A member of the RNA family "Bacterial small subunit ribosomal RNA" from uncultured Nitrospirae bacterium MY4-5C, 543 nucleotides of a longer RNA. NCBI's taxonomy places the organism under Bacteria, Pseudomonadati, Nitrospirota.

RNA sequence: UAAACUGAGAGUUUGAUCCUGGCUCAGAGCGAACGCUGGCGGCGUGCUUAACACAUGCAAGUCAUACGGAGUUAUGGAGGGGUAACCUGACAUAACUAAGUGGCGGACGGGUGAGUAACGCGUAGGUGACCUGCCCUUGUGACUGGGAUAACCACUGGAAACGGUGGAUAAUACCGGAUAAGCCCACGAUUAGGUGAUAGUAGUGGGAAAAGGAGAAAUCUGCACAAGGAUGGGCCUGCGUCCUAUCAGGUAGUUGGUAAGGUAAAGGCUUACCAAGCCUAAGACGGGUAGCCGGUCUGAGAGGAUGGACGGCCACACUGGAACUGAGACACGGUCCAGACUCCUACGGGAGGCAGCAGUGAGGAAUUUUGCGCAAUGGGCGAAAGCCUGACGCAGCGACGCCGCGUGGGGGAUGAAGGCCUUCGGGUUGUAAACCCCUUUUGUAAGGGAAGAUAGUGACGGUACCUUAAGAAUAAGCCACGGCUAACUCUGUGCCAGCAGCCGCGGUAAGACAGAGGUGGCAAGCGUUGCUCGGAAUCACUG
Numbered sequence: 001u002a003a004a005c006u007g008a009g010a011g012u013u014u015g016a017u018c019c020u021g022g023c024u025c026a027g028a029g030c031g032a033a034c035g036c037u038g039g040c041g042g043c044g045u046g047c048u049u050a051a052c053a054c055a056u057g058c059a060a061g062u063c064a065u066a067c068g069g070a071g072u073u074a075u076g077g078a079g080g081g082g083u084a085a086c087c088u089g090a091c092a093u094a095a096c097u098a099a100g101u102g103g104c105g106g107a108c109g110g111g112u113g114a115g116u117a118a119c120g121c122g123u124a125g126g127u128g129a130c131c132u133g134c135c136c137u138u139g140u141g142a143c144u145g146g147g148a149u150a151a152c153c154a155c156u157g158g159a160a161a162c163g164g165u166g167g168a169u170a171a172u173a174c175c176g177g178a179u180a181a182g183c184c185c186a187c188g189a190u191u192a193g194g195u196g197a198u199a200g201u202a203g204u205g206g207g208a209a210a211a212g213g214a215g216a217a218a219u220c221u222g223c224a225c226a227a228g229g230a231u232g233g234g235c236c237u238g239c240g241u242c243c244u245a246u247c248a249g250g251u252a253g254u255u256g257g258u259a260a261g262g263u264a265a266a267g268g269c270u271u272a273c274c275a276a277g278c279c280u281a282a283g284a285c286g287g288g289u290a291g292c293c294g295g296u297c298u299g300a301g302a303g304g305a306u307g308g309a310c311g312g313c314c315a316c317a318c319u320g321g322a323a324c325u326g327a328g329a330c331a332c333g334g335u336c337c338a339g340a341c342u343c344c345u346a347c348g349g350g351a352g353g354c355a356g357c358a359g360u361g362a363g364g365a366a367u368u369u370u371g372c373g374c375a376a377u378g379g380g381c382g383a384a385a386g387c388c389u390g391a392c393g394c395a396g397c398g399a400c401g402c403c404g405c406g407u408g409g410g411g412g413a414u415g416a417a418g419g420c421c422u423u424c425g426g427g428u429u430g431u432a433a434a435c436c437c438c439u440u441u442u443g444u445a446a447g448g449g450a451a452g453a454u455a456g457u458g459a460c461g462g463u464a465c466c467u468u469a470a471g472a473a474u475a476a477g478c479c480a481c482g483g484c485u486a487a488c489u490c491u492g493u494g495c496c497a498g499c500a501g502c503c504g505c506g507g508u509a510a511g512a513c514a515g516a517g518g519u520g521g522c523a524a525g526c527g528u529u530g531c532u533c534g535g536a537a538u539c540a541c542u543g
Stems, first nucleotide, its partner, number of pairs: 009025005027533004032529006039405006045398002047363001052361003056358003061104003066101002069097001075092002079088003111316003120241008130233002135229007143177004152167006183207005189201004212221003242288003249279003254276008291313004295306004318339005341352004369395001371394003377390005408438004418429004444469005452460001477522005488517005498505002